[Rfam]
RNA sequence: CAAGUGUGCAUUGUAGUUGCAUUGCAUUAAAAUUCAAAGUGCAAUUCUUCUAUAGUGCAACACUUG
Numbered sequence: 001c002a003a004g005u006g007u008g009c010a011u012u013g014u015a016g017u018u019g020c021a022u023u024g025c026a027u028u029a030a031a032a033u034u035c036a037a038a039g040u041g042c043a044a045u046u047c048u049u050c051u052a053u054a055g056u057g058c059a060a061c062a063c064u065u066g
Stems, first nucleotide, its partner, number of pairs: 001066004007059010019047001021045007

Rfam assigns this 66-nucleotide RNA from Aphidius gifuensis to the family "mir-33 microRNA precursor family".
The base pairs follow the family's consensus structure, which was predicted with PFOLD.
Lineage of the source: Eukaryota > Metazoa > Mandibulata > Dicondylia > Aphidius.
A search with the family's covariance model found it, with a score of 56 bits.
The literature on the family includes a 2009 paper in BMC Genomics by Li et al., "Direct sequencing and expression analysis of a large number of miRNAs in Aedes aegypti and a multi-species survey of novel mosquito miRNAs".